RNA sequence: AGAACAAGGGAUCGCCCCCCGUCAGCGCGUUGCGCCCACGGGGGCAUUUGUG
Number, nucleotide and partner (000 for none) at each position: 001a000002g000003a000004a000005c000006a000007a000008g000009g000010g000011a000012u000013c000014g000015c000016c044017c043018c042019c041020c040021g039022u038023c000024a000025g035026c034027g033028c032029g000030u000031u000032g028033c027034g026035c025036c000037c000038a022039c021040g020041g019042g018043g017044g016045c000046a000047u000048u000049u000050g000051u000052g000